[Rfam]
The family of this 80-nucleotide RNA from Evansella cellulosilytica is "c-di-GMP-I riboswitch aptamer". NCBI's taxonomy places the organism under Bacteria, Bacillota, Bacillaceae, Evansella, Evansella cellulosilytica. From the family's description: GEMM was predicted in a large-scale screen for bacterial structured RNA regulatory elements.

RNA sequence: UUAAUAUUGGGGCAAACUGUGCGAAAGUGCAGGACGCAAAGCCACGGGUCUAAGCAUAGUAUGAUAGCCGGGUUACCUAG
Numbered sequence: 001u002u003a004a005u006a007u008u009g010g011g012g013c014a015a016a017c018u019g020u021g022c023g024a025a026a027g028u029g030c031a032g033g034a035c036g037c038a039a040a041g042c043c044a045c046g047g048g049u050c051u052a053a054g055c056a057u058a059g060u061a062u063g064a065u066a067g068c069c070g071g072g073u074u075a076c077c078u079a080g
Stems, first nucleotide, its partner, number of pairs: 012037002017032006040074004045070003048065003055059001